[Rfam]
RNA sequence: UAUUCUCAUGAGGGAGCCAUUUUGGGUACAACCCAAGUAUCGACCCAUCCCACAGUAAUUUUAUGUAUAUCGUGCAUUACUGCUAGGCACCAUGAAUAUUAUAUA
Numbered sequence: 001u002a003u004u005c006u007c008a009u010g011a012g013g014g015a016g017c018c019a020u021u022u023u024g025g026g027u028a029c030a031a032c033c034c035a036a037g038u039a040u041c042g043a044c045c046c047a048u049c050c051c052a053c054a055g056u057a058a059u060u061u062u063a064u065g066u067a068u069a070u071c072g073u074g075c076a077u078u079a080c081u082g083c084u085a086g087g088c089a090c091c092a093u094g095a096a097u098a099u100u101a102u103a104u105a
Stems, first nucleotide, its partner, number of pairs: 006095005012088001016083002022036006037059002040055001042053001063077005

Mitochondrial DNA control region secondary structure A: a 105-nucleotide RNA sequence from Pongo abelii.
For this family Rfam cites "Evidence for variable selective pressures at a large secondary structure of the human mitochondrial DNA control region" (Pereira et al., Mol Biol Evol, 2008).
The family's consensus secondary structure is taken from published work.